RNA: Small nucleolar RNA SNORA29
RNA sequence: CUGCACACACGAUGGUUGUUUUCUUCUCUUACUGUUAGAUUAUAGUGGCCAUGCUCAUGGGAUGGGUUAAAGCUGCCAUGACAUGAAGAGAGAGGGCUUUUCAGUGUCUCUGUUAAAUGGCUGAACUUAACACU
Number, nucleotide and partner (000 for none) at each position: 001c000002u000003g000004c061005a000006c059007a058008c000009a000010c000011g000012a000013u000014g000015g000016u048017u047018g046019u045020u000021u000022u000023c000024u000025u000026c000027u000028c000029u000030u000031a000032c000033u000034g000035u000036u000037a000038g000039a000040u000041u000042a000043u000044a000045g019046u018047g017048g016049c000050c000051a000052u000053g000054c000055u000056c000057a000058u007059g006060g000061g004062a000063u000064g000065g000066g000067u000068u000069a000070a000071a000072g000073c000074u000075g121076c120077c119078a118079u000080g000081a000082c000083a000084u000085g000086a000087a000088g000089a000090g000091a000092g000093a111094g110095g109096g108097c000098u000099u000100u000101u000102c000103a000104g000105u000106g000107u000108c096109u095110c094111u093112g000113u000114u000115a000116a000117a000118u078119g077120g076121c075122u000123g000124a000125a000126c000127u000128u000129a000130a000131c000132a000133c000134u000